Overview: This 73-nucleotide sequence from Youngiibacter fragilis belongs to the Rfam family "Fluoride riboswitch aptamer (crcB RNA motif)". The organism belongs to Youngiibacter fragilis, within Bacteria.
[Rfam]
RNA sequence: UUUCUACAUGGGAAUGAACGUCUCCCUUGGCUUUGCCAGAACCGCAUUUUAUGCUGAUGACUUCUGCGAUCUC
Number, nucleotide and partner (000 for none) at each position: 001u000002u000003u000004c000005u000006a000007c000008a000009u000010g026011g025012g024013a023014a000015u000016g064017a063018a062019c000020g061021u060022c059023u013024c012025c011026c010027u000028u000029g000030g000031c000032u000033u000034u000035g000036c000037c000038a000039g000040a000041a000042c000043c000044g054045c053046a052047u000048u000049u000050u000051a000052u046053g045054c044055u000056g000057a000058u000059g022060a021061c020062u018063u017064c016065u000066g000067c000068g000069a000070u000071c000072u000073c000